[Rfam]
RNA sequence: UCUAAACUAAUAAAUUUCCUUCAUAUAUCCUCGAUGAUAUGGUUCGAGAGUCUCUACCGGGUCACCCUAAAGGAUCCGACUAUGAAGGCAGAUGGGUCUUAU
Numbered sequence: 001u002c003u004a005a006a007c008u009a010a011u012a013a014a015u016u017u018c019c020u021u022c023a024u025a026u027a028u029c030c031u032c033g034a035u036g037a038u039a040u041g042g043u044u045c046g047a048g049a050g051u052c053u054c055u056a057c058c059g060g061g062u063c064a065c066c067c068u069a070a071a072g073g074a075u076c077c078g079a080c081u082a083u084g085a086a087g088g089c090a091g092a093u094g095g096g097u098c099u100u101a102u
Stems, first nucleotide, its partner, number of pairs: 018088008030048005058078006
A member of the RNA family "Purine riboswitch aptamer" from Niallia taxi, 102 nucleotides long. It scores 82 bits against the family's covariance model. The family's consensus secondary structure is taken from published work.